[Rfam]
RNA sequence: UGACACCGCGCGGGAGAGUCUCCGUCUUCUUCCCCGUCGGAGCGCCGAAGGGGCAAAUCCUCCCCGGAACCUCUCAGGCGCCAGGACCGUGCGGGACAG
Numbered sequence: 001u002g003a004c005a006c007c008g009c010g011c012g013g014g015a016g017a018g019u020c021u022c023c024g025u026c027u028u029c030u031u032c033c034c035c036g037u038c039g040g041a042g043c044g045c046c047g048a049a050g051g052g053g054c055a056a057a058u059c060c061u062c063c064c065c066g067g068a069a070c071c072u073c074u075c076a077g078g079c080g081c082c083a084g085g086a087c088c089g090u091g092c093g094g095g096a097c098a099g
Base pairs, nucleotide, nucleotide: 006094007093008092009091010090011089012088013087020042021041022040023039044079045078046077047075048074051073052072053071058066
Rfam assigns this 99-nucleotide RNA sequence from Nocardioides panacis to the family "Glycine riboswitch aptamer". A search with the family's covariance model found it, with a score of 67 bits. NCBI's taxonomy places the organism under Bacteria, Bacillati, Propionibacteriales, Nocardioidaceae, Nocardioides.